Shown here is a 67-nucleotide RNA sequence from Photorhabdus laumondii, a member of the family "int-alpA RNA". By type it is a small RNA. Acidobacteria (1 example), Planctomycetes (1 example), Proteobacteria.
[Rfam]
RNA sequence: UACUCGGCUAGGGUAGCUCCCGAAAAGCGGAUUUCGUCACCGCCUGCUGAGCACUAUUUCAUGACGA
Numbered sequence: 001u002a003c004u005c006g007g008c009u010a011g012g013g014u015a016g017c018u019c020c021c022g023a024a025a026a027g028c029g030g031a032u033u034u035c036g037u038c039a040c041c042g043c044c045u046g047c048u049g050a051g052c053a054c055u056a057u058u059u060c061a062u063g064a065c066g067a
Stems, first nucleotide, its partner, number of pairs: 001053001003051006011021003027043004034067005